[Rfam]
RNA sequence: UGCAACAGGGGAAGCUUCGAUCCUCGGACCGAUGUCCGGUCGCCAGGUGGGUCCAGAACCCGCCGGUCCGAGGGGAGCUAGUGGCGAGACCGACCCUAGGUCCG
Numbered sequence: 001u002g003c004a005a006c007a008g009g010g011g012a013a014g015c016u017u018c019g020a021u022c023c024u025c026g027g028a029c030c031g032a033u034g035u036c037c038g039g040u041c042g043c044c045a046g047g048u049g050g051g052u053c054c055a056g057a058a059c060c061c062g063c064c065g066g067u068c069c070g071a072g073g074g075g076a077g078c079u080a081g082u083g084g085c086g087a088g089a090c091c092g093a094c095c096c097u098a099g100g101u102c103c104g
Stems, first nucleotide, its partner, number of pairs: 001104002004101001006099001008097004013079003022073008038091002040087005
RNA: c-di-GMP-II-GAG riboswitch aptamer